[Rfam]
RNA sequence: AUAAAGCACGUUUGUAAGUCGCUCUGGAUAAAAGUGUCUGCUAAAUGCUGUAAA
Numbered sequence: 001a002u003a004a005a006g007c008a009c010g011u012u013u014g015u016a017a018g019u020c021g022c023u024c025u026g027g028a029u030a031a032a033a034g035u036g037u038c039u040g041c042u043a044a045a046u047g048c049u050g051u052a053a054a
Base pairs, nucleotide, nucleotide: 013043014041015040016039020036021035022034023033025031
This 54-nucleotide RNA sequence from Electrophorus electricus belongs to the Rfam family "UnaL2 LINE 3' element". The family's consensus secondary structure is taken from published work. The family has 30 seed sequences and 493,311 matches in Rfam 15.1. It is annotated as a cis-regulatory element. The organism belongs to Electrophorus, within Eukaryota.